RNA sequence: GUGUUUUUCAUAGUAUUAGAUUUAAGGUUAACAAAGAUUGGUUGCCCGUGACGGGUAGCCUUUUUUUAUG
Numbered sequence: 001g002u003g004u005u006u007u008u009c010a011u012a013g014u015a016u017u018a019g020a021u022u023u024a025a026g027g028u029u030a031a032c033a034a035a036g037a038u039u040g041g042u043u044g045c046c047c048g049u050g051a052c053g054g055g056u057a058g059c060c061u062u063u064u065u066u067u068a069u070g
Stems, first nucleotide, its partner, number of pairs: 040060007